Bacterial large signal recognition particle RNA: a 265-nucleotide RNA sequence from Bacillus sp. FJAT-27986. A search with the family's covariance model found it, with a score of 222 bits. The base pairs follow the family's consensus structure, which is taken from published work. Its family is annotated with SRP-dependent cotranslational protein targeting to membrane, signal sequence recognition and signal recognition particle, plasma membrane targeting in the Gene Ontology. Rfam's curators write: The signal recognition particle (SRP) is a universally conserved ribonucleoprotein involved in the co-translational targeting of proteins to membranes.
RNA sequence: CCGUGCUAGGUGGGAAGGUAGCGGUGUCCUGUACUUGCAAUCCGCUCUAGCAAGACGGAAUUCCCUCCCUCGGUAGGUACUCUGUAGGGUCUGACCUUUGUAAGUGGUGUUGACGUCUGGGUCCUGCGCAAUGGGAACUUAUGAACCCUGUCAGGUCCGGAAGGAAGCAGCAGUAAGUAAGACCUCUCAUGUGCCGCAGGGCAGCCUGGACUGAGCUAACUGCACUGGUUCCGCUUAUGGAUAUCUAUCAACGGAGGGUGCACGG
Numbered sequence: 001c002c003g004u005g006c007u008a009g010g011u012g013g014g015a016a017g018g019u020a021g022c023g024g025u026g027u028c029c030u031g032u033a034c035u036u037g038c039a040a041u042c043c044g045c046u047c048u049a050g051c052a053a054g055a056c057g058g059a060a061u062u063c064c065c066u067c068c069c070u071c072g073g074u075a076g077g078u079a080c081u082c083u084g085u086a087g088g089g090u091c092u093g094a095c096c097u098u099u100g101u102a103a104g105u106g107g108u109g110u111u112g113a114c115g116u117c118u119g120g121g122u123c124c125u126g127c128g129c130a131a132u133g134g135g136a137a138c139u140u141a142u143g144a145a146c147c148c149u150g151u152c153a154g155g156u157c158c159g160g161a162a163g164g165a166a167g168c169a170g171c172a173g174u175a176a177g178u179a180a181g182a183c184c185u186c187u188c189a190u191g192u193g194c195c196g197c198a199g200g201g202c203a204g205c206c207u208g209g210a211c212u213g214a215g216c217u218a219a220c221u222g223c224a225c226u227g228g229u230u231c232c233g234c235u236u237a238u239g240g241a242u243a244u245c246u247a248u249c250a251a252c253g254g255a256g257g258g259u260g261c262a263c264g265g
Base pairs, nucleotide, nucleotide: 001265002264003263004262005261006260010056011055012030013029014028015027017025019023034054035053036052037051038050063258064257065256066255067254068253072249073248074247075246076245081241082240083239084238085237086236087235088234093229096227099224100223101222104220105219106217107216108215115211116210117209118208119207120206121205122204123200124199125198126197127196128195129191130190132189133188134187135186136185138181139180140179141178142177148173149172150171151170156165157164158163
Overview: The literature on the family includes a 2002 paper in Nucleic Acids Res by Regalia et al., "Prediction of signal recognition particle RNA genes".